[Rfam]
Nucleotides: 079
Stems, first nucleotide, its partner, number of pairs: 001015004007033005016025003035058005044075005
Number, partner (000 for none) and nucleotide at each position: 001015c002014c003013a004012c005000u006000g007033c008032c009031a010030g011029a012004g013003u014002g015001g016025c017024c018023c019000c020000u021000u022000g023018g024017g025016g026000a027000u028000g029011u030010c031009u032008g033007g034000a035058c036057a037056c038055c039054g040000a041000u042000a043000a044075g045074c046073c047072g048071g049000u050000a051000g052000u053000g054039c055038g056037g057036u058035g059000g060000u061000g062000c063000g064000a065000u066000a067000a068000a069000c070000a071048c072047c073046g074045g075044c076000a077000g078000u079000c

This 79-nucleotide sequence belongs to the Rfam family "Proteo-phage-1 RNA".